[Rfam]
RNA sequence: AACACGCUCCUUAGAUCCACCUCUGGGGUAGUCUUCCAACUUCUGAGUGUUGCAGCUCUAGGUUGGAGGCUCCCAGCAGCUUUUCUGGCUGUACAGUUGGAGGUGCUUGAGUCAUUGGCGUGUGAGAGCAGUCUACCUGCUCCUUCAGCCCAUUUGCUGCCCUGGCUCCCACCAUGGGAACUUCACCAGGGCAGACAAGCUGGAGGGCGGACAAA
Dot-bracket structure: .(((((((.(((((...((((((((.((.((.....(.(..((((.(..(....)..))))).).)...)).)).((((((.....)))))).....)))))))).))))).....))))))).............(((((..(.((((.......((((((.((.(((.......)))......)).))))))....)))).).))))).....
RNA: Small nucleolar RNA SNORA53
Organism: Silurus meridionalis